[Rfam]
RNA sequence: ACACGACAAGGGCAAAACCAUUGAAAAAUGGUGACGCAAAGCUUCAGGGGCUAAGUUUUUUAAUAAGCCAGCCAGUUAUCGAA
Numbered sequence: 001a002c003a004c005g006a007c008a009a010g011g012g013c014a015a016a017a018c019c020a021u022u023g024a025a026a027a028a029u030g031g032u033g034a035c036g037c038a039a040a041g042c043u044u045c046a047g048g049g050g051c052u053a054a055g056u057u058u059u060u061u062a063a064u065a066a067g068c069c070a071g072c073c074a075g076u077u078a079u080c081g082a083a
Stems, first nucleotide, its partner, number of pairs: 012037002017032006040077004047073002049069003056063002

c-di-GMP-I riboswitch aptamer: an 83-nucleotide RNA from Salibacterium salarium. Lineage of the source: Bacteria > Bacilli > Caryophanales > Bacillaceae > Salibacterium. It scores 74 bits against the family's covariance model.